RNA sequence: UGUACUCACUUCUGUAAGUUGCUCUGGAUAAGAGCAUCUGCUAAAUUACUCAAA
Numbered sequence: 001u002g003u004a005c006u007c008a009c010u011u012c013u014g015u016a017a018g019u020u021g022c023u024c025u026g027g028a029u030a031a032g033a034g035c036a037u038c039u040g041c042u043a044a045a046u047u048a049c050u051c052a053a054a
Stems, first nucleotide, its partner, number of pairs: 013043001014041003020036006
A member of the RNA family "UnaL2 LINE 3' element" from Salmo trutta, 54 nucleotides long. The family's RNA type in Rfam is cis-regulatory element. The source organism's lineage runs through Eukaryota, Opisthokonta, Bilateria, Gnathostomata and Salmo. Rfam describes the family as follows. The eel long interspersed element (LINE) UnaL2 and its partner short interspersed element (SINE) share a conserved 3' tail containing a stem-loop that is critical for their retrotransposition. Presumably, the first step of retrotransposition is the recognition of their 3' tails by UnaL2-encoded reverse transcriptase. The solution structure of a 17-nucleotide RNA derived from the 3' tail of UnaL2 was determined by NMR. Rfam links the family to the GO term transposition, RNA-mediated.